Rfam assigns this 96-nucleotide RNA from Amborella trichopoda to the family "Small nucleolar RNA Z266". Lineage of the source: Eukaryota > Viridiplantae > Tracheophyta > Euphyllophyta > Amborella. Its family is annotated with RNA processing and nucleolus in the Gene Ontology. By type it is a C/D-box small nucleolar RNA. The literature on the family includes a 2003 paper in Nucleic Acids Res by Chen et al., "The high diversity of snoRNAs in plants: identification and comparative study of 120 snoRNA genes from Oryza sativa". The family's consensus secondary structure was predicted with PFOLD. The family has 11 seed sequences and 719 matches in Rfam 15.1.
RNA sequence: AUGUGGCAAGAGUGAUGAACCAAUUAGAUGUAUGAAAAGAAUUGUUCUUUCAUGAACUGAACUUUUGAGGCAUUAUAAUACUCUGACUAGCCACUU
Numbered sequence: 001a002u003g004u005g006g007c008a009a010g011a012g013u014g015a016u017g018a019a020c021c022a023a024u025u026a027g028a029u030g031u032a033u034g035a036a037a038a039g040a041a042u043u044g045u046u047c048u049u050u051c052a053u054g055a056a057c058u059g060a061a062c063u064u065u066u067g068a069g070g071c072a073u074u075a076u077a078a079u080a081c082u083c084u085g086a087c088u089a090g091c092c093a094c095u096u
Stems, first nucleotide, its partner, number of pairs: 001096001003094005009088002